A member of the RNA family "Fluoride riboswitch aptamer (crcB RNA motif)" from Thermobacillus composti, 60 nucleotides long. It scores 62 bits against the family's covariance model.

RNA sequence: GAUGAAAUAGGCGAUGGAGUUCGCCAUAACUGCCGAAAGGCUGAUGACUCCUACCCGUGU
Numbered sequence: 001g002a003u004g005a006a007a008u009a010g011g012c013g014a015u016g017g018a019g020u021u022c023g024c025c026a027u028a029a030c031u032g033c034c035g036a037a038a039g040g041c042u043g044a045u046g047a048c049u050c051c052u053a054c055c056c057g058u059g060u
Base pairs, nucleotide, nucleotide: 010025011024012023013022016051017050018049019048020047021046032041033040034039